[Rfam]
RNA sequence: UGAUUGAUGAUGACCCCCCUCAUAUGUUUUCCUGGGAAAUCCGAACAAAAUGAGGGAGAACUCCUUAAAAAAAUUAUAAUUUUAGCAAUUUCA
Numbered sequence: 001u002g003a004u005u006g007a008u009g010a011u012g013a014c015c016c017c018c019c020u021c022a023u024a025u026g027u028u029u030u031c032c033u034g035g036g037a038a039a040u041c042c043g044a045a046c047a048a049a050a051u052g053a054g055g056g057a058g059a060a061c062u063c064c065u066u067a068a069a070a071a072a073a074u075u076a077u078a079a080u081u082u083u084a085g086c087a088a089u090u091u092c093a
Stems, first nucleotide, its partner, number of pairs: 001093003027056005033048001035046001
RNA: Small nucleolar RNA SNORD116